This 96-nucleotide RNA belongs to the Rfam family "Bacterial small signal recognition particle RNA".
By type it is a non-coding RNA gene.
RNA sequence: CACGUGCUAGUAGUGGGCAUUGGCUCUGUUCAGGUGGUCAGGUUCGAAAGGAAGCAGCCAAAAUAGUCUCUGGUGGGUCAUUACUAGCAUGUAUAA
Number, nucleotide and partner (000 for none) at each position: 001c000002a000003c000004g090005u089006g088007c087008u086009a085010g084011u083012a082013g081014u080015g000016g000017g000018c075019a074020u073021u072022g071023g000024c000025u000026c066027u065028g064029u063030u062031c000032a000033g000034g000035u060036g059037g058038u057039c000040a000041g000042g000043u052044u051045c050046g000047a000048a000049a000050g045051g044052a043053a000054g000055c000056a000057g038058c037059c036060a035061a000062a030063a029064u028065a027066g026067u000068c000069u000070c000071u022072g021073g020074u019075g018076g000077g000078u000079c000080a014081u013082u012083a011084c010085u009086a008087g007088c006089a005090u004091g000092u000093a000094u000095a000096a000

The signal recognition particle (SRP) is a universally conserved ribonucleoprotein involved in the co-translational targeting of proteins to membranes.